[Rfam]
RNA sequence: UAACUCUUGUUUCAUUUCAAUAUACGAAACGUUUAAAUCUUUCGCCUUUUACUAAAGAUUUUCGUGGAAUGGAACAAUUAAAAGAGUUUUAAACACUUUUUAAAGCCCUCAGGGUUA
Numbered sequence: 001u002a003a004c005u006c007u008u009g010u011u012u013c014a015u016u017u018c019a020a021u022a023u024a025c026g027a028a029a030c031g032u033u034u035a036a037a038u039c040u041u042u043c044g045c046c047u048u049u050u051a052c053u054a055a056a057g058a059u060u061u062u063c064g065u066g067g068a069a070u071g072g073a074a075c076a077a078u079u080a081a082a083a084g085a086g087u088u089u090u091a092a093a094c095a096c097u098u099u100u101u102a103a104a105g106c107c108c109u110c111a112g113g114g115u116u117a
Stems, first nucleotide, its partner, number of pairs: 003087004009075011035061008104116005

Rfam assigns this 117-nucleotide sequence from Schmidtea mediterranea to the family "U5 spliceosomal RNA". The literature on the family includes a 1997 paper in Nucleic Acids Res by Zwieb, "The uRNA database".